[Rfam]
RNA sequence: GGGAACCUACUAAGGGCAGGGGCCAAGAGCCAGCCCCCGUCUGCAGACUAGUAGGCCCA
Numbered sequence: 001g002g003g004a005a006c007c008u009a010c011u012a013a014g015g016g017c018a019g020g021g022g023c024c025a026a027g028a029g030c031c032a033g034c035c036c037c038c039g040u041c042u043g044c045a046g047a048c049u050a051g052u053a054g055g056c057c058c059a
Stems, first nucleotide, its partner, number of pairs: 014042004019037005027058001029056003
Shown here is a 59-nucleotide RNA from Mauremys mutica, a member of the family "Ma3 gene ribosomal frameshift signal". Rfam classes the family as a frameshift element. NCBI's taxonomy places the organism under Eukaryota, Vertebrata, Teleostomi, Tetrapoda, Mauremys. It scores 37 bits against the family's covariance model.